[Rfam]
RNA sequence: GCUGUUAUAGCUUAAUGAUAAAGCAUGUUACUGUUAAUAACACCAUAGGGGUUUGAUUCCUCUUAACGGCU
Numbered sequence: 001g002c003u004g005u006u007a008u009a010g011c012u013u014a015a016u017g018a019u020a021a022a023g024c025a026u027g028u029u030a031c032u033g034u035u036a037a038u039a040a041c042a043c044c045a046u047a048g049g050g051g052u053u054u055g056a057u058u059c060c061u062c063u064u065a066a067c068g069g070c071u
Base pairs, nucleotide, nucleotide: 001070002069003068004067005066006065007064010024011023012022013021026042027041028040029039030038047063048062049061050060051059

tRNA: a 71-nucleotide sequence from Linnemannia gamsii. The family's RNA type in Rfam is transfer RNA. The literature on the family includes a 1993 paper in Trends Biochem Sci by Hou, "The tertiary structure of tRNA and the development of the genetic code". The match comes from Rfam's covariance-model search (58 bits). Taxonomically the source falls in Linnemannia (Eukaryota, Opisthokonta, Mortierellomycetes, Mortierellaceae).